[Rfam]
RNA sequence: AUGUGACAAGAACUUUUAGGGCAAUAGCGGGGAACCCACUCAUCUGACGAGUCAUUCGUCUUGGGGUGAAGUCAUGCCAAUAAGCAAGACCGGACCAAUCACAGGGCCGAACCCGACAGCUAACUUCGCAGGUGUAGAUGUGAGAGGAA
Number, nucleotide and partner (000 for none) at each position: 001a000002u026003g025004u024005g000006a000007c000008a000009a000010g000011a000012a000013c000014u000015u000016u000017u000018a000019g000020g000021g000022c000023a000024a004025u003026a002027g129028c128029g127030g126031g125032g124033a000034a000035c000036c000037c063038a062039c000040u000041c000042a000043u000044c000045u000046g000047a000048c000049g000050a000051g000052u000053c000054a000055u000056u000057c000058g000059u000060c000061u000062u038063g037064g114065g113066g112067u000068g000069a000070a000071g000072u089073c088074a000075u086076g000077c000078c000079a000080a000081u000082a000083a000084g000085c000086a075087a000088g073089a072090c000091c000092g108093g107094a000095c105096c000097a000098a000099u000100c000101a000102c000103a000104g000105g095106g000107c093108c092109g000110a000111a000112c066113c065114c064115g000116a000117c000118a000119g000120c000121u000122a000123a000124c032125u031126u030127c029128g028129c027130a000131g000132g000133u000134g000135u000136a000137g000138a000139u000140g000141u000142g000143a000144g000145a000146g000147g000148a000149a000
The family of this 149-nucleotide RNA sequence from Glutamicibacter sp. BW77 is "c-di-AMP riboswitch aptamer (ydaO/yuaA leader)". Lineage of the source: Bacteria > Actinomycetota > Actinomycetes > Micrococcaceae > Glutamicibacter.